[Rfam]
RNA sequence: UGAGUAGGACAGAUGAUCGCUGCCAUGCAGACGAAAGGGCAUGGGAGAGGAAAGUCCGGGCUUCGCAGGGCAGGAUGCCAGAUAACGUCUGGUGGAGGUAACUCCCAGGCUAGUGCAACAGAAAUAUACCGCUUAGCAUUUUGCUAAGUAAGGGUGGAAAGGCAGUGUAAGAGACUACCGUGCUGGUGGUAACAUCAGUAGCCAUGUAAACCCCAUUCGAAGCAAGACCGAAUAGAAAGCUAUGAAUUUGCCCGAUUCGCUUUCAGGUGGGUCGCUUGAAACUGUUGGUGACAGCAGUUCUAGAUAGAUGAUCAUCCAAGACAUAACCCGGCUUAUCGUUCUACUCAUAUA
Numbered sequence: 001u002g003a004g005u006a007g008g009a010c011a012g013a014u015g016a017u018c019g020c021u022g023c024c025a026u027g028c029a030g031a032c033g034a035a036a037g038g039g040c041a042u043g044g045g046a047g048a049g050g051a052a053a054g055u056c057c058g059g060g061c062u063u064c065g066c067a068g069g070g071c072a073g074g075a076u077g078c079c080a081g082a083u084a085a086c087g088u089c090u091g092g093u094g095g096a097g098g099u100a101a102c103u104c105c106c107a108g109g110c111u112a113g114u115g116c117a118a119c120a121g122a123a124a125u126a127u128a129c130c131g132c133u134u135a136g137c138a139u140u141u142u143g144c145u146a147a148g149u150a151a152g153g154g155u156g157g158a159a160a161g162g163c164a165g166u167g168u169a170a171g172a173g174a175c176u177a178c179c180g181u182g183c184u185g186g187u188g189g190u191a192a193c194a195u196c197a198g199u200a201g202c203c204a205u206g207u208a209a210a211c212c213c214c215a216u217u218c219g220a221a222g223c224a225a226g227a228c229c230g231a232a233u234a235g236a237a238a239g240c241u242a243u244g245a246a247u248u249u250g251c252c253c254g255a256u257u258c259g260c261u262u263u264c265a266g267g268u269g270g271g272u273c274g275c276u277u278g279a280a281a282c283u284g285u286u287g288g289u290g291a292c293a294g295c296a297g298u299u300c301u302a303g304a305u306a307g308a309u310g311a312u313c314a315u316c317c318a319a320g321a322c323a324u325a326a327c328c329c330g331g332c333u334u335a336u337c338g339u340u341c342u343a344c345u346c347a348u349a350u351a
Stems, first nucleotide, its partner, number of pairs: 001347010011336001012316007020047002023044006052334003056331005061222004068253004073218005078092005093107001094105004108213002113211002115207003129153002131149008161179002164176003180202001181200008226273004235264006244258005280299008
RNA: Bacterial RNase P class A
Organism: Butyrivibrio sp. YAB3001